[Rfam]
RNA sequence: ACUUAUCUUCAGGGCACCGUGAAAUUCGGGACCGGCGGUUAAAGUCCGCGAAGCUGAAAAGCUUGAUGUGGUGGAAUUCCACAACCGACAGUAAAGUCUGGAUGGGAGAAGAAUAAG
Numbered sequence: 001a002c003u004u005a006u007c008u009u010c011a012g013g014g015c016a017c018c019g020u021g022a023a024a025u026u027c028g029g030g031a032c033c034g035g036c037g038g039u040u041a042a043a044g045u046c047c048g049c050g051a052a053g054c055u056g057a058a059a060a061g062c063u064u065g066a067u068g069u070g071g072u073g074g075a076a077u078u079c080c081a082c083a084a085c086c087g088a089c090a091g092u093a094a095a096g097u098c099u100g101g102a103u104g105g106g107a108g109a110a111g112a113a114u115a116a117g
Base pairs, nucleotide, nucleotide: 003115006112007111008110009109010108017029018028019027031097032096033087034086035049036048037047038046044085045084052063053062054061067083068082069081070080071079089100090099091098
Dot-bracket structure: ..(..(((((......(((.......))).[[((((((.....[[))))..(((......)))...(((((.......)))))]])).(((....]]))).......)))))..)..